Source information:
The family of this 279-nucleotide part of an RNA from Pyrobaculum arsenaticum is "Archaeal large subunit ribosomal RNA". Rfam links the family to the GO terms ribosome and structural constituent of ribosome. The source organism's lineage runs through Archaea, Thermoproteati, Thermoprotei, Pyrobaculum and Pyrobaculum arsenaticum.

RNA sequence: GGCCGCCUGAGGGGAAGGUGCCCUCAGUACGAGAGGAACGGGGCGCCGCGGCCUCUAGUGUACCGGUUGUCCGGCAGGGCACUGCCGGGCAGCCACGCCGUGUGGGGAUAACCGCUGAACGCAUCUAAGCGGGAAGCCCUCCCCGAGACGAGGCGGCCGUUGCCCUGGGGGCGACCCCGGGGCACGAGGGCUCCCGUAGAAGACGGGGUUGAUGGGGGGGCGGUGUAACUCCCGAGGGUUUCCCGAGGGGGGAGCCGGCCCCUCCCAAUAGCCCGAGCG
Numbered sequence: 001g002g003c004c005g006c007c008u009g010a011g012g013g014g015a016a017g018g019u020g021c022c023c024u025c026a027g028u029a030c031g032a033g034a035g036g037a038a039c040g041g042g043g044c045g046c047c048g049c050g051g052c053c054u055c056u057a058g059u060g061u062a063c064c065g066g067u068u069g070u071c072c073g074g075c076a077g078g079g080c081a082c083u084g085c086c087g088g089g090c091a092g093c094c095a096c097g098c099c100g101u102g103u104g105g106g107g108a109u110a111a112c113c114g115c116u117g118a119a120c121g122c123a124u125c126u127a128a129g130c131g132g133g134a135a136g137c138c139c140u141c142c143c144c145g146a147g148a149c150g151a152g153g154c155g156g157c158c159g160u161u162g163c164c165c166u167g168g169g170g171g172c173g174a175c176c177c178c179g180g181g182g183c184a185c186g187a188g189g190g191c192u193c194c195c196g197u198a199g200a201a202g203a204c205g206g207g208g209u210u211g212a213u214g215g216g217g218g219g220g221c222g223g224u225g226u227a228a229c230u231c232c233c234g235a236g237g238g239u240u241u242c243c244c245g246a247g248g249g250g251g252g253a254g255c256c257g258g259c260c261c262c263u264c265c266c267a268a269u270a271g272c273c274c275g276a277g278c279g
Stems, first nucleotide, its partner, number of pairs: 001158008011144004017047008048101005056095001058093001063088005068081005105139003112132005188274004192208005213267003216263005221257003226252001229251005236244001